RNA sequence: CUCUUAUCAAGAGCAGGUGGAGGGACGAGCCCGAUGAAACCCGGCAACCGGCAGUAUGCACGGUGCUAAUUCUUGCAGGAGCUGCGGCUUCUGAGAGAUGAGAG
Numbered sequence: 001c002u003c004u005u006a007u008c009a010a011g012a013g014c015a016g017g018u019g020g021a022g023g024g025a026c027g028a029g030c031c032c033g034a035u036g037a038a039a040c041c042c043g044g045c046a047a048c049c050g051g052c053a054g055u056a057u058g059c060a061c062g063g064u065g066c067u068a069a070u071u072c073u074u075g076c077a078g079g080a081g082c083u084g085c086g087g088c089u090u091c092u093g094a095g096a097g098a099u100g101a102g103a104g
Base pairs, nucleotide, nucleotide: 001104002103003102004101005100006099007098008097013042016041017040018039022032023031024030026075027074028073029072043067044066045065046064048063049062051059052058053057071096076093077092078091079090080089081088
Dot-bracket structure: ((((((((....(..(((...(((.[[[[)))......))))((((.((.(((...)))..))))))...(]]]]((((((......))))))..)))))))))
The family of this 104-nucleotide sequence from Insulibacter thermoxylanivorax is "SAM riboswitch aptamer (S box leader)". The source organism's lineage runs through Bacteria, Bacillati, Bacilli, Caryophanales and Insulibacter. A search with the family's covariance model found it, with a score of 80 bits.